[Rfam]
RNA sequence: UUGCAGCCCCUUUCAAGUAAUCCAGGAUAGGCUGUUCUCACUCACUCGGCCUAUUCUUGGUUACUUGCAUGGGGAGGCCU
Numbered sequence: 001u002u003g004c005a006g007c008c009c010c011u012u013u014c015a016a017g018u019a020a021u022c023c024a025g026g027a028u029a030g031g032c033u034g035u036u037c038u039c040a041c042u043c044a045c046u047c048g049g050c051c052u053a054u055u056c057u058u059g060g061u062u063a064c065u066u067g068c069a070u071g072g073g074g075a076g077g078c079c080u
Stems, first nucleotide, its partner, number of pairs: 003078002007074004012069001014067009024057010